[Rfam]
RNA: UnaL2 LINE 3' element
RNA sequence: CCUAACUGUUCCUGUAUGUCGCUCUGGAUAAGAGCGUCUGCUAAAUGACUCAAA
Dot-bracket structure: ............((((...((((((.....))))))..))).)...........
Numbered sequence: 001c002c003u004a005a006c007u008g009u010u011c012c013u014g015u016a017u018g019u020c021g022c023u024c025u026g027g028a029u030a031a032g033a034g035c036g037u038c039u040g041c042u043a044a045a046u047g048a049c050u051c052a053a054a
Stems, first nucleotide, its partner, number of pairs: 013043001014041003020036006